A member of the RNA family "Bacterial large subunit ribosomal RNA" from Actinoalloteichus hoggarensis, 260 nucleotides of a longer RNA.
[Rfam]
RNA sequence: GGAUACUUGCGGAAGGCUGUCCCUAGUACGAGAGGACCGGGAUGGACGAACCUCUGGUGUGCCAGUUGUACCGCCAGGUGCAUGGCUGGUUGGCUACGUUCGGGAGGGAUAACCGCUGAAAGCAUCUAAGCGGGAAGCCUGUUCCUAGAUGAGGUGUCCCACCCCUUUGUGGGUUAAGGCCCCCAGCAGACCACUGGGUUGAUAGGCCCGAGAUGGAAGCCUGGUAACAGGUGGAGUUGACGGGUACUAAUAGGCCGAGG
Numbered sequence: 001g002g003a004u005a006c007u008u009g010c011g012g013a014a015g016g017c018u019g020u021c022c023c024u025a026g027u028a029c030g031a032g033a034g035g036a037c038c039g040g041g042a043u044g045g046a047c048g049a050a051c052c053u054c055u056g057g058u059g060u061g062c063c064a065g066u067u068g069u070a071c072c073g074c075c076a077g078g079u080g081c082a083u084g085g086c087u088g089g090u091u092g093g094c095u096a097c098g099u100u101c102g103g104g105a106g107g108g109a110u111a112a113c114c115g116c117u118g119a120a121a122g123c124a125u126c127u128a129a130g131c132g133g134g135a136a137g138c139c140u141g142u143u144c145c146u147a148g149a150u151g152a153g154g155u156g157u158c159c160c161a162c163c164c165c166u167u168u169g170u171g172g173g174u175u176a177a178g179g180c181c182c183c184c185a186g187c188a189g190a191c192c193a194c195u196g197g198g199u200u201g202a203u204a205g206g207c208c209c210g211a212g213a214u215g216g217a218a219g220c221c222u223g224g225u226a227a228c229a230g231g232u233g234g235a236g237u238u239g240a241c242g243g244g245u246a247c248u249a250a251u252a253g254g255c256c257g258a259g260g
Stems, first nucleotide, its partner, number of pairs: 001159008011145004017045007047102005055096003062089005067082006106140003113133005162173003175258001178256004182198005203249003206245005212238002219232005
Taxonomically the source falls in Actinoalloteichus (Bacteria, Actinomycetota, Actinomycetes, Pseudonocardiales). Pairs were carried over by alignment from the consensus structure, which is taken from published work. It scores 2756 bits against the family's covariance model.